[Rfam]
RNA: Metazoan signal recognition particle RNA
Organism: Anhinga anhinga
RNA sequence: UGGAUGUGGUGGCAUGUGCCUGUAGUCCCAGCUACUCAGGAGACUGAGCCUGCUGGAUCGCUUGAGGCCAGGAGUUCUGGGCUGCAGUGUGUUAUGCCGAGCGGGUAUCCGUGCUAAUGCCUGCACCAAUAUGGUGAGCCCCGGCAAGCAGGGGGACACCAGGUUGACUAAGGAGGGGUGAACCAGCCCAGGUCAGAGACGGAGCAGGUCAAAGUUCCCAUGCCGGUCAGUAGUGGGAUCGCGCCUUUGAAUAACCACUGCAGCAUGGCCUGGGCAACACAGAGAGACACAGUUCCUU
Number, nucleotide and partner (000 for none) at each position: 001u042002g021003g020004a000005u018006g017007u016008g015009g000010u000011g000012g000013c000014a000015u008016g007017u006018g005019c000020c003021u002022g000023u000024a000025g000026u041027c040028c039029c000030a000031g000032c000033u000034a000035c000036u000037c000038a000039g028040g027041a026042g001043a000044c000045u000046g296047a000048g294049c000050c292051u291052g290053c000054u000055g000056g000057a000058u285059c284060g000061c282062u281063u000064g000065a000066g275067g000068c273069c272070a271071g270072g269073a000074g000075u000076u000077c268078u267079g266080g000081g264082c263083u262084g261085c260086a259087g258088u257089g256090u000091g255092u254093u253094a252095u251096g000097c249098c000099g000100a000101g248102c000103g246104g245105g244106u243107a000108u241109c237110c236111g000112u235113g234114c233115u232116a231117a000118u000119g227120c226121c225122u000123g223124c222125a221126c000127c166128a165129a164130u163131a000132u161133g160134g159135u158136g157137a000138g000139c154140c153141c152142c151143g000144g149145c000146a000147a000148g000149c144150a000151g142152g141153g140154g139155g000156a000157c136158a135159c134160c133161a132162g000163g130164u129165u128166g127167a000168c172169u000170a000171a000172g168173g000174a000175g218176g217177g216178g215179u214180g000181a000182a000183c000184c000185a000186g209187c208188c207189c000190a000191g000192g000193u202194c201195a000196g000197a000198g000199a000200c000201g194202g193203a000204g000205c000206a000207g188208g187209u186210c000211a000212a000213a000214g179215u178216u177217c176218c175219c000220a000221u125222g124223c123224c000225g121226g120227u119228c000229a000230g000231u116232a115233g114234u113235g112236g110237g109238a000239u000240c000241g108242c000243g106244c105245c104246u103247u000248u101249g097250a000251a095252u094253a093254a092255c091256c089257a088258c087259u086260g085261c084262a083263g082264c081265a000266u079267g078268g077269c072270c071271u070272g069273g068274g000275c066276a000277a000278c000279a000280c000281a062282g061283a000284g059285a058286g000287a000288c000289a000290c052291a051292g050293u000294u048295c000296c046297u000298u000